[Rfam]
RNA: Histone 3' UTR stem-loop
RNA sequence: ACAAAGGCUCUUUUAAGAGCCACCCACAUGUUCAGUGAAGAGCUUG
Numbered sequence: 001a002c003a004a005a006g007g008c009u010c011u012u013u014u015a016a017g018a019g020c021c022a023c024c025c026a027c028a029u030g031u032u033c034a035g036u037g038a039a040g041a042g043c044u045u046g
Base pairs, nucleotide, nucleotide: 006021007020008019009018010017011016